RNA: transfer-messenger RNA
Organism: Salinibacterium xinjiangense
RNA sequence: GGGGAUGAUCGGUUUCGACAUUGCCUGCAAAACCGCGAGAAGCGGGUCGAGGACGCACGGUUAUCUCGUAAACGAUCCGCGCAAAACACAAGUGCCAAUUCCAAUAGCACUGUUUCUGCCAAGGCAGACCUCGCCCUCGCGGCGUAGUCUCCUCCGCAACUAAUGAAACCGUCAGGCCGGGAAUGCUCUCUACCCGGAUUCUGGCGUCAUCUAGAGAGAUUGCUGCGUUCCUGAGUCUCAGGGGUACGCGGGACUUCAACUGAGGCUGGGCCUGUUGACCUGGAUGCUCGUUGCAAGGGUCAGGGCCGAGUAGAACGCUUAGCGAGCUACACCCGUAGAAGACGUGGAAUUACAGCAGUGGACCGGGGUUCAAUUCCCCGCAUCUCCACCA
Numbered sequence: 001g002g003g004g005a006u007g008a009u010c011g012g013u014u015u016c017g018a019c020a021u022u023g024c025c026u027g028c029a030a031a032a033c034c035g036c037g038a039g040a041a042g043c044g045g046g047u048c049g050a051g052g053a054c055g056c057a058c059g060g061u062u063a064u065c066u067c068g069u070a071a072a073c074g075a076u077c078c079g080c081g082c083a084a085a086a087c088a089c090a091a092g093u094g095c096c097a098a099u100u101c102c103a104a105u106a107g108c109a110c111u112g113u114u115u116c117u118g119c120c121a122a123g124g125c126a127g128a129c130c131u132c133g134c135c136c137u138c139g140c141g142g143c144g145u146a147g148u149c150u151c152c153u154c155c156g157c158a159a160c161u162a163a164u165g166a167a168a169c170c171g172u173c174a175g176g177c178c179g180g181g182a183a184u185g186c187u188c189u190c191u192a193c194c195c196g197g198a199u200u201c202u203g204g205c206g207u208c209a210u211c212u213a214g215a216g217a218g219a220u221u222g223c224u225g226c227g228u229u230c231c232u233g234a235g236u237c238u239c240a241g242g243g244g245u246a247c248g249c250g251g252g253a254c255u256u257c258a259a260c261u262g263a264g265g266c267u268g269g270g271c272c273u274g275u276u277g278a279c280c281u282g283g284a285u286g287c288u289c290g291u292u293g294c295a296a297g298g299g300u301c302a303g304g305g306c307c308g309a310g311u312a313g314a315a316c317g318c319u320u321a322g323c324g325a326g327c328u329a330c331a332c333c334c335g336u337a338g339a340a341g342a343c344g345u346g347g348a349a350u351u352a353c354a355g356c357a358g359u360g361g362a363c364c365g366g367g368g369u370u371c372a373a374u375u376c377c378c379c380g381c382a383u384c385u386c387c388a389c390c391a
Stems, first nucleotide, its partner, number of pairs: 001387007019360005025355003033347005043335005048068005055082002058079003170206006177197005186218006223251006230244002234267006269307005276302003281296001283294001286327004291321001293319001364380005